Source information:
Shown here is a 362-nucleotide RNA sequence from Mediterraneibacter butyricigenes, a member of the family "Bacterial RNase P class A". The organism belongs to Mediterraneibacter, within Bacteria. A search with the family's covariance model found it, with a score of 302 bits. The family's RNA type in Rfam is ribozyme.

[Rfam]
RNA sequence: AAAGUAAGACAGACGGUCGCGGCUGCAAGUGCCGAAAGGUAGCAGACGAGGAAAGUCCGGGCUUCAAAGGGCAGGAUGCCGGAUAACGUCCGGUGGAGGCGACUCCAAGGCUAGUGCAACAGAAAUAAACCGCGAGCCGGAGUGAAUUACUCCGGCUCGUAAGGGUGGAAAGGCAGUGUAAGAGACUACCGCCUCACUGGUAACAGCGGGGGCAUAUGUAAACCCCAUCCGAAGCAAGACCGGAUCAAAGCGAUGUGGCGGCCCGUCACGCUUUAGGUAGGUCGCUGGAGCCUGAUGGCAACAUCAGGCCUAGACAGAUGACCGUCCAACGACAUAACCCGGCUUAUCGUCUUGCUUCGCGU
Numbered sequence: 001a002a003a004g005u006a007a008g009a010c011a012g013a014c015g016g017u018c019g020c021g022g023c024u025g026c027a028a029g030u031g032c033c034g035a036a037a038g039g040u041a042g043c044a045g046a047c048g049a050g051g052a053a054a055g056u057c058c059g060g061g062c063u064u065c066a067a068a069g070g071g072c073a074g075g076a077u078g079c080c081g082g083a084u085a086a087c088g089u090c091c092g093g094u095g096g097a098g099g100c101g102a103c104u105c106c107a108a109g110g111c112u113a114g115u116g117c118a119a120c121a122g123a124a125a126u127a128a129a130c131c132g133c134g135a136g137c138c139g140g141a142g143u144g145a146a147u148u149a150c151u152c153c154g155g156c157u158c159g160u161a162a163g164g165g166u167g168g169a170a171a172g173g174c175a176g177u178g179u180a181a182g183a184g185a186c187u188a189c190c191g192c193c194u195c196a197c198u199g200g201u202a203a204c205a206g207c208g209g210g211g212g213c214a215u216a217u218g219u220a221a222a223c224c225c226c227a228u229c230c231g232a233a234g235c236a237a238g239a240c241c242g243g244a245u246c247a248a249a250g251c252g253a254u255g256u257g258g259c260g261g262c263c264c265g266u267c268a269c270g271c272u273u274u275a276g277g278u279a280g281g282u283c284g285c286u287g288g289a290g291c292c293u294g295a296u297g298g299c300a301a302c303a304u305c306a307g308g309c310c311u312a313g314a315c316a317g318a319u320g321a322c323c324g325u326c327c328a329a330c331g332a333c334a335u336a337a338c339c340c341g342g343c344u345u346a347u348c349g350u351c352u353u354g355c356u357u358c359g360c361g362u
Stems, first nucleotide, its partner, number of pairs: 002357009011347001012326007020048002023045004028040001053345003057342005062234004069264004074230005079093005094108001095106004109225002114223002116219003130164002132160012172190002175187003191213001192211004197206003238283004247274006256268004290309008